[Rfam]
RNA sequence: GAGUGAGGUCAGGGGUUUCUAUCGGCCUCCAGCAGAAAAAAAAAAUGGUUGUAGGCCGGCGGAAACUACUUGCUUUCACUG
Numbered sequence: 001g002a003g004u005g006a007g008g009u010c011a012g013g014g015g016u017u018u019c020u021a022u023c024g025g026c027c028u029c030c031a032g033c034a035g036a037a038a039a040a041a042a043a044a045a046u047g048g049u050u051g052u053a054g055g056c057c058g059g060c061g062g063a064a065a066c067u068a069c070u071u072g073c074u075u076u077c078a079c080u081g
Base pairs, nucleotide, nucleotide: 005077006076007075008074010072011071012070013069014067015066016065017064018063019062020061022059023058024057025056026055027054028053030051031050032049
A member of the RNA family "mir-2796 microRNA precursor family" from Microctonus hyperodae, 81 nucleotides long.
Rfam links the family to the GO terms RISC complex and miRNA-mediated post-transcriptional gene silencing.
A search with the family's covariance model found it, with a score of 81 bits.